[Rfam]
RNA: L31-Actinobacteria ribosomal protein leader
RNA sequence: GCGGUACCGGUUCACGUCUCGCAGCAGGCGACCCGGCGACC
Numbered sequence: 001g002c003g004g005u006a007c008c009g010g011u012u013c014a015c016g017u018c019u020c021g022c023a024g025c026a027g028g029c030g031a032c033c034c035g036g037c038g039a040c041c
Base pairs, nucleotide, nucleotide: 003041004040005039007036008035009034010033015030016029017028018027019026